Shown here is a 97-nucleotide RNA from Pedobacter changchengzhani, a member of the family "Flavo-1 RNA".
It scores 57 bits against the family's covariance model.
It is annotated as a small RNA.
Taxonomically the source falls in Pedobacter (Bacteria, Pseudomonadati, Bacteroidota, Sphingobacteriia).
RNA sequence: UUUUUGCGUUAACGAUUGUAGCGGCAUCCUUUUUGGCUGUCAUCCUGAGCGUAGUCGAAGGACAGCCAAAAAGAUACAGCGAAAAGCGUGUUAAAAC
Number, nucleotide and partner (000 for none) at each position: 001u000002u000003u000004u000005u000006g000007c000008g000009u000010u000011a000012a089013c088014g087015a000016u085017u084018g000019u000020a000021g080022c079023g000024g000025c000026a075027u074028c073029c000030u000031u000032u070033u069034u068035g067036g066037c065038u064039g063040u062041c061042a000043u000044c000045c000046u000047g000048a000049g000050c000051g000052u000053a000054g000055u000056c000057g000058a000059a000060g000061g041062a040063c039064a038065g037066c036067c035068a034069a033070a032071a000072a000073g028074a027075u026076a000077c000078a000079g022080c021081g000082a000083a000084a017085a016086g000087c014088g013089u012090g000091u000092u000093a000094a000095a000096a000097c000